[Rfam]
Shown here is a 118-nucleotide RNA sequence from Pollutimonas bauzanensis, a member of the family "Group II catalytic intron D1-D4-2". The pairing is the family consensus, mapped onto this sequence. About the family: Group II introns are found in rRNA, tRNA and mRNA of organelles in fungi, plants and protists, and also in mRNA in bacteria.
RNA sequence: GAGGGAUGGCCCCUCGGAGUCGGUUUGCAGGAGCAGGCUCCAAACCACCUCAAGCUGCUUGGGUAAAGAGCCCUGGUGGUGAGCGUUGAGGAAAAGGCGCGGCAAGACUGCGUCAGGU
Numbered sequence: 001g002a003g004g005g006a007u008g009g010c011c012c013c014u015c016g017g018a019g020u021c022g023g024u025u026u027g028c029a030g031g032a033g034c035a036g037g038c039u040c041c042a043a044a045c046c047a048c049c050u051c052a053a054g055c056u057g058c059u060u061g062g063g064u065a066a067a068g069a070g071c072c073c074u075g076g077u078g079g080u081g082a083g084c085g086u087u088g089a090g091g092a093a094a095a096g097g098c099g100c101g102g103c104a105a106g107a108c109u110g111c112g113u114c115a116g117g118u
Base pairs, nucleotide, nucleotide: 001015002014003013004012005011016041017040018039019038020037021036023034024033025032026031046117048091049090050089051088052087053086054080055079057077058076059075061073062072063071064070096114097113098112099111100110101109